[Rfam]
RNA: Guanidine-I riboswitch aptamer
Organism: Agrobacterium bohemicum
RNA sequence: AGAGUUGGCCGCUAGGGUUCCGGCGCAUUGUGCGUGACUGGUCCGAGAGCAGCCACUGGGUGGGGAGAAAUCCUGCCCGGAUGCACGGCGGGACAAAAGCCCGGGAGAC
Numbered sequence: 001a002g003a004g005u006u007g008g009c010c011g012c013u014a015g016g017g018u019u020c021c022g023g024c025g026c027a028u029u030g031u032g033c034g035u036g037a038c039u040g041g042u043c044c045g046a047g048a049g050c051a052g053c054c055a056c057u058g059g060g061u062g063g064g065g066a067g068a069a070a071u072c073c074u075g076c077c078c079g080g081a082u083g084c085a086c087g088g089c090g091g092g093a094c095a096a097a098a099g100c101c102c103g104g105g106a107g108a109c
Stems, first nucleotide, its partner, number of pairs: 007054003011050002015044002020041002022038001023035005055082001056080009084104001086107001090102003